RNA sequence: UCGACUGUACUCGAACAGGAUCACUUCUAUAGUAAAUCCGCUUGUUCACUGUCACAGCGACAGACAACACCUUAAGUCGUGACGAUGAGUCGUACAUCCCGCCAUCCCUUGAAGGGAGGCUCCCUACGUGGUCCGAUUUUUCAGACUUUCGCAGGGCAGCUUUGAUGAUACCGGGGCAGGAUGCGCAGGCAUCUUGUCCCAAUGGCGAGGAUGAUUCUGAACGACU
Numbered sequence: 001u002c003g004a005c006u007g008u009a010c011u012c013g014a015a016c017a018g019g020a021u022c023a024c025u026u027c028u029a030u031a032g033u034a035a036a037u038c039c040g041c042u043u044g045u046u047c048a049c050u051g052u053c054a055c056a057g058c059g060a061c062a063g064a065c066a067a068c069a070c071c072u073u074a075a076g077u078c079g080u081g082a083c084g085a086u087g088a089g090u091c092g093u094a095c096a097u098c099c100c101g102c103c104a105u106c107c108c109u110u111g112a113a114g115g116g117a118g119g120c121u122c123c124c125u126a127c128g129u130g131g132u133c134c135g136a137u138u139u140u141u142c143a144g145a146c147u148u149u150c151g152c153a154g155g156g157c158a159g160c161u162u163u164g165a166u167g168a169u170a171c172c173g174g175g176g177c178a179g180g181a182u183g184c185g186c187a188g189g190c191a192u193c194u195u196g197u198c199c200c201a202a203u204g205g206c207g208a209g210g211a212u213g214a215u216u217c218u219g220a221a222c223g224a225c226u
Stems, first nucleotide, its partner, number of pairs: 002040002006035001008034004017028004045069001050064001052062001076225005095213005100207006110170002118161003123155003
RNA: ACEA small nucleolar RNA U3
Organism: Besnoitia besnoiti